[Rfam]
A member of the RNA family "Bacterial RNase P class A" from Shewanella amazonensis, 358 nucleotides long.
RNA sequence: CGAGUCGACUGGGCAGUCGCUGCGCUCGCAAGAGCGGGGAGGAAAGUCCGGGCUCCAUAGAGCAGGGUGCCAGAUAACGUCUGGGCGGCGUAAGCCGACGACAAGUGCAACAGAGAACAGACCGCCUGCCUUCGGGCCGGUAAGGGUGAAACGGUGCGGUAAGAGCGCACCGCGCGACUGGCAACAGUUCGUGGCAAGGUAAACUCCACCCGGAGCAAGAUCAAAUAGGGUUCCUUAUGGCGUGGCUCGCGUUGGAACCGGGUAGAUUGCUUGAGCCUGCGAGCGAUUGCAGGCCUAGAGGAAUGGCUGCCACUCCUUUCGGGGAGAACAGAACCCGGCUUACAGGUCGGCUCACCAC
Numbered sequence: 001c002g003a004g005u006c007g008a009c010u011g012g013g014c015a016g017u018c019g020c021u022g023c024g025c026u027c028g029c030a031a032g033a034g035c036g037g038g039g040a041g042g043a044a045a046g047u048c049c050g051g052g053c054u055c056c057a058u059a060g061a062g063c064a065g066g067g068u069g070c071c072a073g074a075u076a077a078c079g080u081c082u083g084g085g086c087g088g089c090g091u092a093a094g095c096c097g098a099c100g101a102c103a104a105g106u107g108c109a110a111c112a113g114a115g116a117a118c119a120g121a122c123c124g125c126c127u128g129c130c131u132u133c134g135g136g137c138c139g140g141u142a143a144g145g146g147u148g149a150a151a152c153g154g155u156g157c158g159g160u161a162a163g164a165g166c167g168c169a170c171c172g173c174g175c176g177a178c179u180g181g182c183a184a185c186a187g188u189u190c191g192u193g194g195c196a197a198g199g200u201a202a203a204c205u206c207c208a209c210c211c212g213g214a215g216c217a218a219g220a221u222c223a224a225a226u227a228g229g230g231u232u233c234c235u236u237a238u239g240g241c242g243u244g245g246c247u248c249g250c251g252u253u254g255g256a257a258c259c260g261g262g263u264a265g266a267u268u269g270c271u272u273g274a275g276c277c278u279g280c281g282a283g284c285g286a287u288u289g290c291a292g293g294c295c296u297a298g299a300g301g302a303a304u305g306g307c308u309g310c311c312a313c314u315c316c317u318u319u320c321g322g323g324g325a326g327a328a329c330a331g332a333a334c335c336c337g338g339c340u341u342a343c344a345g346g347u348c349g350g351c352u353c354a355c356c357a358c
Base pairs, nucleotide, nucleotide: 002353003352004351005350006349007348008347009346010345011343012311013310014309015308016307017306018305020039021038023036024035025034026033027032044341045340046339048338049337050336051335052334053215054214055213056212060248061247062246063245065211066210067209068208069207070084071083072082073081074080085099086097087096088095089094100206101205105204106203107200108199122145123144124141125140126139128137129136130135153171154170155169156168157167158166172195173193174192175191176190177189178187179186180185219268220267221266222265229259230258231257232256233255234254239253240252241251242250243249275294276293277292278291279290280289281288282287
Its family is annotated with dimeric ribonuclease P complex, tRNA processing and ribonuclease P activity in the Gene Ontology. By type it is a ribozyme. The source organism's lineage runs through Bacteria, Alteromonadales, Shewanellaceae, Shewanella and Shewanella amazonensis.